[Rfam]
RNA sequence: CGAGCAUCAGUGAUGAAUACUUCCAAAUUGUUAUCCUUGCACUUUGAUUGCCAGUGAAGAAACUUAUGGGGAAUGAUGUUCUGAGAUGCUC
Numbered sequence: 001c002g003a004g005c006a007u008c009a010g011u012g013a014u015g016a017a018u019a020c021u022u023c024c025a026a027a028u029u030g031u032u033a034u035c036c037u038u039g040c041a042c043u044u045u046g047a048u049u050g051c052c053a054g055u056g057a058a059g060a061a062a063c064u065u066a067u068g069g070g071g072a073a074u075g076a077u078g079u080u081c082u083g084a085g086a087u088g089c090u091c
Stems, first nucleotide, its partner, number of pairs: 002091007
The record is a 91-nucleotide RNA sequence from Senna tora, which matches "Small nucleolar RNA snoR26" in Rfam.
Pairs were carried over by alignment from the consensus structure, which was predicted with WAR.
It is annotated as a C/D-box small nucleolar RNA.
On this family, see Brown et al., RNA 2001: "Multiple snoRNA gene clusters from Arabidopsis".